[Rfam]
About this RNA:
Purine riboswitch aptamer: a 100-nucleotide RNA from Paenibacillus silvestris.

RNA sequence: CACGAACUGAAUAUAAUCUUUCGUAUAACCUUAAUAAUCGGAUUAAGGGUCUCUACUUAGAAACCGUAAAUUUCUAGCUACGAAGAAUGUGCGCAUUUGC
Numbered sequence: 001c002a003c004g005a006a007c008u009g010a011a012u013a014u015a016a017u018c019u020u021u022c023g024u025a026u027a028a029c030c031u032u033a034a035u036a037a038u039c040g041g042a043u044u045a046a047g048g049g050u051c052u053c054u055a056c057u058u059a060g061a062a063a064c065c066g067u068a069a070a071u072u073u074c075u076a077g078c079u080a081c082g083a084a085g086a087a088u089g090u091g092c093g094c095a096u097u098u099g100c
Base pairs, nucleotide, nucleotide: 019085020084021083022082023081024080025079029048030047031046032045033044034043035042057077058076059075060074061073062072063071